[Rfam]
RNA sequence: AAAGGAGCAAUAAUCAUUUCUUGUUCUGUCAAGAGGGUGCUAUUGCUCCUUUCUUUUU
Numbered sequence: 001a002a003a004g005g006a007g008c009a010a011u012a013a014u015c016a017u018u019u020c021u022u023g024u025u026c027u028g029u030c031a032a033g034a035g036g037g038u039g040c041u042a043u044u045g046c047u048c049c050u051u052u053c054u055u056u057u058u
Base pairs, nucleotide, nucleotide: 001052002051003050004049005048006047007046008045009044010043011042012041018035019034020033021032022031023030
Shown here is a 58-nucleotide RNA from Solanum bulbocastanum, a member of the family "Plastid-psbA-3 3UTR RNA". The family's RNA type in Rfam is cis-regulatory element. On this family, see Richter et al., Plant Commun 2023: "Retrograde signaling in plants: A critical review focusing on the GUN pathway and beyond". Its Rfam clan is "Plastid-psbA 3UTR RNA clan". Plastid psbA-3 is a non-coding RNA (ncRNA) present in plastids. It was identified in inverted repeat sequences in the 3 prime untranslate region (3UTR) of photosystem II quinone-binding protein (psbA). Rfam's curators put it in the seed alignment.